[Rfam]
About this RNA: A member of the RNA family "Glycine riboswitch aptamer" from Bacillus benzoevorans, 80 nucleotides long. The source organism's lineage runs through Bacteria, Bacilli, Caryophanales, Bacillaceae and Bacillus. Clan: Glycine riboswitch clan.
RNA sequence: GGAGCGGCUUCUGGAGAGAAUGCAGAAUAAAGCAUCGCCGAAGGGUUCACAAUCUCAGGCACAAGGACAGAAGAGUAACG
Numbered sequence: 001g002g003a004g005c006g007g008c009u010u011c012u013g014g015a016g017a018g019a020a021u022g023c024a025g026a027a028u029a030a031a032g033c034a035u036c037g038c039c040g041a042a043g044g045g046u047u048c049a050c051a052a053u054c055u056c057a058g059g060c061a062c063a064a065g066g067a068c069a070g071a072a073g074a075g076u077a078a079c080g
Stems, first nucleotide, its partner, number of pairs: 008073006020035004037060003040056002044054003